The record is a 78-nucleotide RNA from Sipha flava, which matches "mir-252 microRNA precursor family" in Rfam. The family has 44 seed sequences and 422 matches in Rfam 15.1. Taxonomically the source falls in Sipha (Eukaryota, Ecdysozoa, Arthropoda, Eumetabola). A search with the family's covariance model found it, with a score of 75 bits.
RNA sequence: UCCUGUUCCUAAGUACUAGUGCCGCGGGAGUGAUAUCCGUUUUUGUAUCUCCUGCAGCUCAAGUGCUUAUCAACGGGA
Numbered sequence: 001u002c003c004u005g006u007u008c009c010u011a012a013g014u015a016c017u018a019g020u021g022c023c024g025c026g027g028g029a030g031u032g033a034u035a036u037c038c039g040u041u042u043u044u045g046u047a048u049c050u051c052c053u054g055c056a057g058c059u060c061a062a063g064u065g066c067u068u069a070u071c072a073a074c075g076g077g078a
Stems, first nucleotide, its partner, number of pairs: 001078007010069008019060001024055007